[Rfam]
RNA sequence: CCCUCCGAAGUUUCCCUCAGGAUAGCUGGAGUUAGUGUAGUUGCACCAGGUAAAGCGAAUGAUUAGAGGUAUCGGGGACUUAUUGUCUUCGACCUAUUCUCAAACUUUGAAUGGGUGCGAGUUAUCAGUUGCUUAAUUGAACUGAUGAGAUCAAUAAAAACUCCAAGUGGGCCAUUUUUGGUAAGCAGAACUGGCGAUGAGGGAUGCUCCUAACGUUGAGUUAAGGUGCUCAAGUCUCGCUCAUCAGAUACCAUAAAAGGUGUUAGUUCAUUUAAACAGCAGGAGGAUGGUCAUGGAAGUUGAAAUUCCCUAAGAAGUGUGUAACAACUUACCUGCCGAAUGAACCAGCCCUGAAAAUGGAUAGCGCUUAAGCGAGACACCGAUACUCAACCAUUACGACAAGUUGGCUUCGUGAUGAGUAGGAGGGCGUGAAGGUUGUACAGAAGUGUGUAGUGUGAACUCGCAUGGAACGGCCUUUAGUGCAGAU
Numbered sequence: 001c002c003c004u005c006c007g008a009a010g011u012u013u014c015c016c017u018c019a020g021g022a023u024a025g026c027u028g029g030a031g032u033u034a035g036u037g038u039a040g041u042u043g044c045a046c047c048a049g050g051u052a053a054a055g056c057g058a059a060u061g062a063u064u065a066g067a068g069g070u071a072u073c074g075g076g077g078a079c080u081u082a083u084u085g086u087c088u089u090c091g092a093c094c095u096a097u098u099c100u101c102a103a104a105c106u107u108u109g110a111a112u113g114g115g116u117g118c119g120a121g122u123u124a125u126c127a128g129u130u131g132c133u134u135a136a137u138u139g140a141a142c143u144g145a146u147g148a149g150a151u152c153a154a155u156a157a158a159a160a161c162u163c164c165a166a167g168u169g170g171g172c173c174a175u176u177u178u179u180g181g182u183a184a185g186c187a188g189a190a191c192u193g194g195c196g197a198u199g200a201g202g203g204a205u206g207c208u209c210c211u212a213a214c215g216u217u218g219a220g221u222u223a224a225g226g227u228g229c230u231c232a233a234g235u236c237u238c239g240c241u242c243a244u245c246a247g248a249u250a251c252c253a254u255a256a257a258a259g260g261u262g263u264u265a266g267u268u269c270a271u272u273u274a275a276a277c278a279g280c281a282g283g284a285g286g287a288u289g290g291u292c293a294u295g296g297a298a299g300u301u302g303a304a305a306u307u308c309c310c311u312a313a314g315a316a317g318u319g320u321g322u323a324a325c326a327a328c329u330u331a332c333c334u335g336c337c338g339a340a341u342g343a344a345c346c347a348g349c350c351c352u353g354a355a356a357a358u359g360g361a362u363a364g365c366g367c368u369u370a371a372g373c374g375a376g377a378c379a380c381c382g383a384u385a386c387u388c389a390a391c392c393a394u395u396a397c398g399a400c401a402a403g404u405u406g407g408c409u410u411c412g413u414g415a416u417g418a419g420u421a422g423g424a425g426g427g428c429g430u431g432a433a434g435g436u437u438g439u440a441c442a443g444a445a446g447u448g449u450g451u452a453g454u455g456u457g458a459a460c461u462c463g464c465a466u467g468g469a470a471c472g473g474c475c476u477u478u479a480g481u482g483c484a485g486a487u
Stems, first nucleotide, its partner, number of pairs: 001427006011024001013022003027165007041120007053108001054106002060102003065097001067095003072092006079085001122148009171195004176190005200211003215391005221385001225381003234378001238374003258352003262349003266345006279336005285309003291303002310314001315330001319328002392417008428482001430479010446466002452461003

A member of the RNA family "Eukaryotic large subunit ribosomal RNA" from Ascogregarina taiwanensis, 487 nucleotides of a longer RNA. The family's consensus secondary structure is taken from published work.